[Rfam]
RNA sequence: CACUCCUGUUUCUGCCCUAUAUUCAUCCUCGUUGAAUUAUAGGUUCUGGUGAUGGAGAAGAACAAGCCCGACAACGGCCUAGCGAAUUUUGUAACCUCGCGAAAGCUUUUGGCGGGAUCGUGUGGUUUGGCUGGCUUAGAAGAUCUUUCGCCUAUGGCGUCAGGUCGGCCAGUCGCCGCUAUAUUU
Numbered sequence: 001c002a003c004u005c006c007u008g009u010u011u012c013u014g015c016c017c018u019a020u021a022u023u024c025a026u027c028c029u030c031g032u033u034g035a036a037u038u039a040u041a042g043g044u045u046c047u048g049g050u051g052a053u054g055g056a057g058a059a060g061a062a063c064a065a066g067c068c069c070g071a072c073a074a075c076g077g078c079c080u081a082g083c084g085a086a087u088u089u090u091g092u093a094a095c096c097u098c099g100c101g102a103a104a105g106c107u108u109u110u111g112g113c114g115g116g117a118u119c120g121u122g123u124g125g126u127u128u129g130g131c132u133g134g135c136u137u138a139g140a141a142g143a144u145c146u147u148u149c150g151c152c153u154a155u156g157g158c159g160u161c162a163g164g165u166c167g168g169c170c171a172g173u174c175g176c177c178g179c180u181a182u183a184u185u186u
Stems, first nucleotide, its partner, number of pairs: 003057004016043004021037005067116004072111003076107003080102001082100004122179004128175005142166005149159001

A member of the RNA family "Small nucleolar RNA snR43" from Clavispora lusitaniae, 186 nucleotides long. For this family Rfam cites "The RNA world of the nucleolus: two major families of small RNAs defined by different box elements with related functions" (Balakin et al., Cell, 1996). The family is grouped with related families in Rfam's "SNORA9 clan". The family's consensus secondary structure is taken from published work. It scores 111 bits against the family's covariance model.